[Rfam]
RNA sequence: ACCAUCCUAGUCUUGGGGUGAAACGGGAAACUCAAUGAGCGUCUAGCGAGAGUUCCCUGCUGACACCAUUACCAACACAUUCGCAUCUCCUAAACUUUAUGUUUAGGUUACGGUGCAAUUUUUGGAAAC
Numbered sequence: 001a002c003c004a005u006c007c008u009a010g011u012c013u014u015g016g017g018g019u020g021a022a023a024c025g026g027g028a029a030a031c032u033c034a035a036u037g038a039g040c041g042u043c044u045a046g047c048g049a050g051a052g053u054u055c056c057c058u059g060c061u062g063a064c065a066c067c068a069u070u071a072c073c074a075a076c077a078c079a080u081u082c083g084c085a086u087c088u089c090c091u092a093a094a095c096u097u098u099a100u101g102u103u104u105a106g107g108u109u110a111c112g113g114u115g116c117a118a119u120u121u122u123u124g125g126a127a128a129c
Base pairs, nucleotide, nucleotide: 006018007017008016020060023058027056029054030053031052032051033050039047040046083116084115085114086113087112088110090106091105092104093103094102095101
Source information: The record is a 129-nucleotide sequence from Oryzias latipes, which matches "U4atac minor spliceosomal RNA" in Rfam. The family has 61 seed sequences and 1,648 matches in Rfam 15.1. For this family Rfam cites "Evolutionary conservation of minor U12-type spliceosome between plants and humans" (Lorkovic et al., RNA, 2005). Taxonomically the source falls in Oryzias (Eukaryota, Eumetazoa, Actinopteri, Ctenosquamata). Its family is annotated with pre-mRNA 5'-splice site binding, spliceosomal tri-snRNP complex assembly and U4atac snRNP in the Gene Ontology.